[Rfam]
RNA sequence: CGAUUAAAGUCAGUCAUAUCAACUGGAAAUCAACCUUUUGAGUUCGGUCUUGUGGGUUUGAAGAGUUUCAAAGCCUUCGGAUUUGUGAGAUUGGGAUCUCUUGGUGCACUUUUUCGUACGGUUAGUCAACAUCGGUUUUAAUCAUUAUAAAAUGGUUGAAGGAAUGUAACUUUGAUUACGAUCGAGGUAUUAUAGCCUUUGACAGAUGUAAUGAUCAAGACCGAGGAUUGCAACGGAUACCCUUCAGGGCUAUUCGUCUGAUCUUUGGUACUUGUCUUUAGUAUCGGAAGCUUGCUAACGAUAUUAGGGUUCACGGGUCAAAGGUUGGAACGGAUUAAAUUCGUUAAGGAUGUUGACGUAAUGACUUUAAACGACCCGUCUUGAAACACGG
Numbered sequence: 001c002g003a004u005u006a007a008a009g010u011c012a013g014u015c016a017u018a019u020c021a022a023c024u025g026g027a028a029a030u031c032a033a034c035c036u037u038u039u040g041a042g043u044u045c046g047g048u049c050u051u052g053u054g055g056g057u058u059u060g061a062a063g064a065g066u067u068u069c070a071a072a073g074c075c076u077u078c079g080g081a082u083u084u085g086u087g088a089g090a091u092u093g094g095g096a097u098c099u100c101u102u103g104g105u106g107c108a109c110u111u112u113u114u115c116g117u118a119c120g121g122u123u124a125g126u127c128a129a130c131a132u133c134g135g136u137u138u139u140a141a142u143c144a145u146u147a148u149a150a151a152a153u154g155g156u157u158g159a160a161g162g163a164a165u166g167u168a169a170c171u172u173u174g175a176u177u178a179c180g181a182u183c184g185a186g187g188u189a190u191u192a193u194a195g196c197c198u199u200u201g202a203c204a205g206a207u208g209u210a211a212u213g214a215u216c217a218a219g220a221c222c223g224a225g226g227a228u229u230g231c232a233a234c235g236g237a238u239a240c241c242c243u244u245c246a247g248g249g250c251u252a253u254u255c256g257u258c259u260g261a262u263c264u265u266u267g268g269u270a271c272u273u274g275u276c277u278u279u280a281g282u283a284u285c286g287g288a289a290g291c292u293u294g295c296u297a298a299c300g301a302u303a304u305u306a307g308g309g310u311u312c313a314c315g316g317g318u319c320a321a322a323g324g325u326u327g328g329a330a331c332g333g334a335u336u337a338a339a340u341u342c343g344u345u346a347a348g349g350a351u352g353u354u355g356a357c358g359u360a361a362u363g364a365c366u367u368u369a370a371a372c373g374a375c376c377c378g379u380c381u382u383g384a385a386a387c388a389c390g391g
Base pairs, nucleotide, nucleotide: 001373002372004370005369006368007367008366009365010364011363012362022122023121024120025119027117127355128354129353130352131351132350133349376391377390378389379388
Rfam assigns this 391-nucleotide part of an RNA from Funneliformis mosseae to the family "Eukaryotic large subunit ribosomal RNA". Pairs were carried over by alignment from the consensus structure, which is taken from published work. Taxonomically the source falls in Funneliformis (Eukaryota, Glomeromycotina, Glomerales, Glomeraceae).